Description: This 97-nucleotide sequence from Carex littledalei belongs to the Rfam family "small nucleolar RNA snoR126". The organism belongs to Carex subgen. Euthyceras, within Eukaryota. Gene Ontology terms of the family: RNA processing and nucleolus.
RNA sequence: AGGCUGUGACGACAAAAUCUCAUUUCUCGAUUCUGAUUUUGAGUAUUUCGUAUCUCGGACCCAACUUGAUGACUUCAUUUGUGCGUGUCUGAGCCUU
Number, nucleotide and partner (000 for none) at each position: 001a096002g095003g094004c093005u000006g000007u000008g000009a000010c000011g000012a000013c000014a000015a000016a000017a000018u000019c000020u000021c000022a000023u000024u000025u000026c000027u000028c000029g000030a000031u000032u000033c000034u000035g000036a000037u000038u000039u000040u000041g000042a000043g000044u000045a000046u000047u000048u000049c000050g000051u000052a000053u000054c000055u000056c000057g000058g000059a000060c000061c000062c000063a000064a000065c000066u000067u000068g000069a000070u000071g000072a000073c000074u000075u000076c000077a000078u000079u000080u000081g000082u000083g000084c000085g000086u000087g000088u000089c000090u000091g000092a000093g004094c003095c002096u001097u000